RNA sequence: CACUGUUACAGUUCUUUUAGAAUCCGCCUAGCAAAUUUUCUGGCUUUUCCCGGAAAAUCUCC
Number, nucleotide and partner (000 for none) at each position: 001c000002a000003c000004u000005g000006u000007u000008a000009c000010a000011g000012u000013u000014c000015u000016u000017u000018u000019a000020g000021a000022a000023u000024c000025c000026g000027c000028c000029u000030a000031g000032c000033a000034a000035a058036u057037u056038u055039u054040c053041u052042g051043g050044c000045u000046u000047u000048u000049c000050c043051c042052g041053g040054a039055a038056a037057a036058u035059c000060u000061c000062c000